[Rfam]
RNA: Pseudomonas sRNA P26
Organism: Shewanella violacea
RNA sequence: AAGUUUAAUUUAACUUACUAAGCCCUAAGUAUUGGGUGAAGGCUGGCGGUUUUUUAACCGUCGGCCU
Number, nucleotide and partner (000 for none) at each position: 001a000002a000003g000004u000005u000006u000007a000008a000009u000010u000011u000012a000013a000014c038015u000016u036017a000018c034019u000020a000021a000022g030023c029024c000025c000026u000027a000028a000029g023030u022031a000032u000033u000034g018035g000036g016037u000038g014039a000040a000041g066042g065043c064044u063045g062046g061047c060048g059049g058050u057051u000052u000053u000054u000055u000056a000057a050058c049059c048060g047061u046062c045063g044064g043065c042066c041067u000